[Rfam]
RNA sequence: AAAGUAAAAACCAACCAGUAUCAUUGGCUGGCCAUAUCUCUCCAACAUAUGGGCGGUCUCUCUAAGCUGGGAGAUAUACCUGAACAACUUAAGUUCUGUUGUGAACUAGAUAUUGAAUCACGUUCCAUAACACUAUUGUCGUUCAAACAACU
Numbered sequence: 001a002a003a004g005u006a007a008a009a010a011c012c013a014a015c016c017a018g019u020a021u022c023a024u025u026g027g028c029u030g031g032c033c034a035u036a037u038c039u040c041u042c043c044a045a046c047a048u049a050u051g052g053g054c055g056g057u058c059u060c061u062c063u064a065a066g067c068u069g070g071g072a073g074a075u076a077u078a079c080c081u082g083a084a085c086a087a088c089u090u091a092a093g094u095u096c097u098g099u100u101g102u103g104a105a106c107u108a109g110a111u112a113u114u115g116a117a118u119c120a121c122g123u124u125c126c127a128u129a130a131c132a133c134u135a136u137u138g139u140c141g142u143u144c145a146a147a148c149a150a151c152u
Stems, first nucleotide, its partner, number of pairs: 015070005027057004032052005081145005087139002098131006104124003111116001
Shown here is a 152-nucleotide RNA sequence from Lachancea fermentati, a member of the family "Small nucleolar RNA snR161". Its family is annotated with nucleolus and RNA processing in the Gene Ontology. Rfam classes the family as an H/ACA-box small nucleolar RNA. A search with the family's covariance model found it, with a score of 126 bits. The literature on the family includes a 2004 paper in Nucleic Acids Res by Schattner et al., "Genome-wide searching for pseudouridylation guide snoRNAs: analysis of the Saccharomyces cerevisiae genome".